RNA sequence: CUCCCCGAAAUGCAUUUAGGUGCAGCGUCGUAUGUUGCUCCGUGGUGGUAGGGCGCUGGUUGGGUGAUGGGCCGUGUCGGUUACUGAGCUCAGCUAAACUUCGAAUGCCAUGGUGUUGAGUGCGGCAGUGAGUCGGCGGGUGAGAAGAUCCGUCGUCGAGAGGGAAACAGCCCAGAUUACCGGCUAAGGCCCCUAAGGGUGUGCUGAGUGGAAAAGGAUGUGGGGUCGCGUUGACAGCCAGGAGGUUGGCUUAGAAGCAGCCAUCCUUGAAAGAGUGCGUAAUAGCUCACUGGUCGAGUGGUUUCGCGCCGAUAAUGUAGCGGGGCUGAAGUGCACCGCCGAAGCCGUAGCAAUGCCAGGUUCCUGUGGGAGCCUGGGUUGGGUAGGGGAGCGUCGUACAUGGGGUGAAGCUCCGGAGUGAUCCAUGGGGUGGACUUUGUACGAGUGAGAAU
Numbered sequence: 001c002u003c004c005c006c007g008a009a010a011u012g013c014a015u016u017u018a019g020g021u022g023c024a025g026c027g028u029c030g031u032a033u034g035u036u037g038c039u040c041c042g043u044g045g046u047g048g049u050a051g052g053g054c055g056c057u058g059g060u061u062g063g064g065u066g067a068u069g070g071g072c073c074g075u076g077u078c079g080g081u082u083a084c085u086g087a088g089c090u091c092a093g094c095u096a097a098a099c100u101u102c103g104a105a106u107g108c109c110a111u112g113g114u115g116u117u118g119a120g121u122g123c124g125g126c127a128g129u130g131a132g133u134c135g136g137c138g139g140g141u142g143a144g145a146a147g148a149u150c151c152g153u154c155g156u157c158g159a160g161a162g163g164g165a166a167a168c169a170g171c172c173c174a175g176a177u178u179a180c181c182g183g184c185u186a187a188g189g190c191c192c193c194u195a196a197g198g199g200u201g202u203g204c205u206g207a208g209u210g211g212a213a214a215a216g217g218a219u220g221u222g223g224g225g226u227c228g229c230g231u232u233g234a235c236a237g238c239c240a241g242g243a244g245g246u247u248g249g250c251u252u253a254g255a256a257g258c259a260g261c262c263a264u265c266c267u268u269g270a271a272a273g274a275g276u277g278c279g280u281a282a283u284a285g286c287u288c289a290c291u292g293g294u295c296g297a298g299u300g301g302u303u304u305c306g307c308g309c310c311g312a313u314a315a316u317g318u319a320g321c322g323g324g325g326c327u328g329a330a331g332u333g334c335a336c337c338g339c340c341g342a343a344g345c346c347g348u349a350g351c352a353a354u355g356c357c358a359g360g361u362u363c364c365u366g367u368g369g370g371a372g373c374c375u376g377g378g379u380u381g382g383g384u385a386g387g388g389g390a391g392c393g394u395c396g397u398a399c400a401u402g403g404g405g406u407g408a409a410g411c412u413c414c415g416g417a418g419u420g421a422u423c424c425a426u427g428g429g430g431u432g433g434a435c436u437u438u439g440u441a442c443g444a445g446u447g448a449g450a451a452u
Stems, first nucleotide, its partner, number of pairs: 001391006011024005026128001027126007036119001037116002040113007051102001052100002057096003061092004069084001070082005132157001134155008162173003177350004182346003188340003197337001199336006216310002220307010237294005243267003248262003268272001273288001277286002351381004356377008392447001394444007402436002410431005415424003